[Rfam]
The record is a 62-nucleotide RNA sequence from Salmo salar, which matches "mir-456 microRNA precursor family" in Rfam.

RNA sequence: GCAGGCAUCUUCCCAGCCUACAUGUGGAUCCAAGAAUCUGCAGGCUGGUUAGAUGGUUGUCA
Numbered sequence: 001g002c003a004g005g006c007a008u009c010u011u012c013c014c015a016g017c018c019u020a021c022a023u024g025u026g027g028a029u030c031c032a033a034g035a036a037u038c039u040g041c042a043g044g045c046u047g048g049u050u051a052g053a054u055g056g057u058u059g060u061c062a
Base pairs, nucleotide, nucleotide: 001060002059003058004057006055007054008053009052010051013048014047015046016045017044018043019042024041025040026039027038028037029036
The sequence is in the family's curated seed alignment.
The literature on the family includes a 2006 paper in FEBS Lett by Xu et al., "Identification of microRNAs from different tissues of chicken embryo and adult chicken".
Its family is annotated with miRNA-mediated post-transcriptional gene silencing and RISC complex in the Gene Ontology.